[Rfam]
RNA: U7 small nuclear RNA
Organism: Microcebus murinus
RNA sequence: UUGUGUUACAGCUCUUUUAGAAUUUGUCUAGCAGGUUUUCUGGUCCUUACCAGAAGGACUUC
Numbered sequence: 001u002u003g004u005g006u007u008a009c010a011g012c013u014c015u016u017u018u019a020g021a022a023u024u025u026g027u028c029u030a031g032c033a034g035g036u037u038u039u040c041u042g043g044u045c046c047u048u049a050c051c052a053g054a055a056g057g058a059c060u061u062c
Stems, first nucleotide, its partner, number of pairs: 034059001036057009